[Rfam]
RNA: ZMP/ZTP riboswitch aptamer (pfl RNA motif)
Organism: Heliophilum fasciatum
RNA sequence: ACGCAAUCACACGACUGGCGGAAGUGGAGUAUACCACAGGGAGUGUGAUUGAGCUUUUAUGCCGACCGCCUGGGCAAUCGUU
Numbered sequence: 001a002c003g004c005a006a007u008c009a010c011a012c013g014a015c016u017g018g019c020g021g022a023a024g025u026g027g028a029g030u031a032u033a034c035c036a037c038a039g040g041g042a043g044u045g046u047g048a049u050u051g052a053g054c055u056u057u058u059a060u061g062c063c064g065a066c067c068g069c070c071u072g073g074g075c076a077a078u079c080g081u082u
Stems, first nucleotide, its partner, number of pairs: 004051009015040002017070005024037004060076004